The record is a 76-nucleotide RNA from Alligator sinensis, which matches "Mammalian CPEB3 ribozyme" in Rfam. It scores 45 bits against the family's covariance model. About the family: The mammalian CPEB3 ribozyme is a self cleaving RNA located in the second intron of the CPEB3 gene which belongs to a family of genes regulating messenger RNA polyadenylation. This ribozyme is highly conserved and found only in mammals. The CPEB3 ribozyme is structurally and biochemically related to the human hepatitis delta virus (HDV) ribozyme and the HDV ribozyme is proposed to have arisen from the human transcriptome.
RNA sequence: GUUGUAUGUUUGAGGCCAUAGCAGAAGCACUCAUGGUGUGGCCAUGUCAGAUUCCAACAGAUCUGCAAAUUUUGAU
Dot-bracket structure: .............[[[[..(.((((((((.......)))]]]]....((((((......))))))....))))).)